[Rfam]
RNA sequence: CCAGUCGACUCGCCUAAUCCCGGGCGCCUCGCCCGGGAACCGGGGACCCAGGUUCAUGGGGUGAAUCCACGGCGCCGCACGCCGCGGUAGGGCUCGCUCUCGGCCCGAACCCGUCAGCUAACCCGGUCGGCGGCAGGAGAGGAGUA
Numbered sequence: 001c002c003a004g005u006c007g008a009c010u011c012g013c014c015u016a017a018u019c020c021c022g023g024g025c026g027c028c029u030c031g032c033c034c035g036g037g038a039a040c041c042g043g044g045g046a047c048c049c050a051g052g053u054u055c056a057u058g059g060g061g062u063g064a065a066u067c068c069a070c071g072g073c074g075c076c077g078c079a080c081g082c083c084g085c086g087g088u089a090g091g092g093c094u095c096g097c098u099c100u101c102g103g104c105c106c107g108a109a110c111c112c113g114u115c116a117g118c119u120a121a122c123c124c125g126g127u128c129g130g131c132g133g134c135a136g137g138a139g140a141g142g143a144g145u146a
Stems, first nucleotide, its partner, number of pairs: 011132004018038009039127006049058002059112003067087002070084005090106004

Description:
A member of the RNA family "c-di-AMP riboswitch aptamer (ydaO/yuaA leader)" from Thermocatellispora tengchongensis, 146 nucleotides long. The source organism's lineage runs through Bacteria, Actinomycetes, Streptosporangiales, Streptosporangiaceae and Thermocatellispora. A reference for the family is Barrick et al. (2004), "New RNA motifs suggest an expanded scope for riboswitches in bacterial genetic control", Proc Natl Acad Sci U S A.